[Rfam]
RNA: tRNA
Organism: Penicillium brevicompactum
RNA sequence: CCUCUUAUAGCUCAGCUGGAAGAGCGUGGGACUGUAAUUGUUACUUCACAGACCUUCUGUGAUCCCGAGGUCCGCGGUUCGAUCCCGCGUGAGAGGA
Numbered sequence: 001c002c003u004c005u006u007a008u009a010g011c012u013c014a015g016c017u018g019g020a021a022g023a024g025c026g027u028g029g030g031a032c033u034g035u036a037a038u039u040g041u042u043a044c045u046u047c048a049c050a051g052a053c054c055u056u057c058u059g060u061g062a063u064c065c066c067g068a069g070g071u072c073c074g075c076g077g078u079u080c081g082a083u084c085c086c087g088c089g090u091g092a093g094a095g096g097a
Stems, first nucleotide, its partner, number of pairs: 001096007010025004027067005073089005